[Rfam]
RNA sequence: CGCCGUUCUCAGGGCGGGGUGAAAUUCCCCACCGGCGGUAAGCAGGCCUAGUCCCGUAAGCCCGCGAGCGGCUUCCGGUCAUCUGGAAGUGUCAGCAGAUCUGGUGCAAUUCCAGAGCCGACGGUUACAGUCCGGAUGGAAGAGAAGGUAC
Numbered sequence: 001c002g003c004c005g006u007u008c009u010c011a012g013g014g015c016g017g018g019g020u021g022a023a024a025u026u027c028c029c030c031a032c033c034g035g036c037g038g039u040a041a042g043c044a045g046g047c048c049u050a051g052u053c054c055c056g057u058a059a060g061c062c063c064g065c066g067a068g069c070g071g072c073u074u075c076c077g078g079u080c081a082u083c084u085g086g087a088a089g090u091g092u093c094a095g096c097a098g099a100u101c102u103g104g105u106g107c108a109a110u111u112c113c114a115g116a117g118c119c120g121a122c123g124g125u126u127a128c129a130g131u132c133c134g135g136a137u138g139g140a141a142g143a144g145a146a147g148g149u150a151c
Stems, first nucleotide, its partner, number of pairs: 004148001006146005017029003031131002033120002035065004060118002068096002100116005122134003
Rfam assigns this 151-nucleotide RNA from Roseobacter sp. SK209-2-6 to the family "FMN riboswitch aptamer (RFN element)". The base pairs follow the family's consensus structure, which is taken from published work. Rfam's curators write: The RFN element is a highly conserved domain that is found frequently in the 5'-untranslated regions of prokaryotic mRNAs that encode for flavin mononucleotide (FMN) biosynthesis and transport proteins. NCBI's taxonomy places the organism under Bacteria, Pseudomonadota, Rhodobacterales, Roseobacteraceae, Roseobacter.